The family of this 150-nucleotide RNA from Budvicia aquatica is "Group II catalytic intron D1-D4-7". Rfam links the family to the GO term Group II intron splicing. Lineage of the source: Bacteria > Pseudomonadati > Gammaproteobacteria > Enterobacterales > Budvicia. Pairs were carried over by alignment from the consensus structure. On this family, see Chu et al., EMBO J 2001: "Control of branch-site choice by a group II intron".

RNA sequence: CCUGCUGUCUCACCAGCAAUUCCCUACCCGACUGUGCAUCAAAAGCAAUUUUGAGGUGCAAAGCGUCGGGGACAACGUAGCCACGGGCAUCCCCACAGGAGCGAACCGUGAGGUUCAAUCCAGAACUGCCAGCCGCAGUCGGUGAAUGAG
Number, nucleotide and partner (000 for none) at each position: 001c000002c000003u018004g017005c016006u015007g014008u000009c000010u000011c000012a000013c000014c007015a006016g005017c004018a003019a000020u000021u000022c000023c000024c000025u000026a000027c000028c069029c068030g067031a066032c065033u060034g059035u058036g057037c056038a000039u054040c053041a052042a051043a050044a049045g000046c000047a000048a000049u044050u043051u042052u041053g040054a039055g000056g037057u036058g035059c034060a033061a000062a000063g000064c000065g032066u031067c030068g029069g028070g000071g000072a000073c000074a000075a000076c000077g000078u000079a000080g000081c000082c000083a000084c000085g094086g093087g092088c000089a000090u000091c000092c087093c086094c085095a000096c000097a000098g121099g120100a119101g000102c000103g000104a000105a000106c113107c112108g000109u000110g000111a000112g107113g106114u000115u000116c000117a000118a000119u100120c099121c098122a000123g000124a000125a143126c142127u141128g140129c000130c138131a000132g000133c000134c000135g000136c000137a000138g130139u000140c128141g127142g126143u125144g000145a000146a000147u000148g000149a000150g000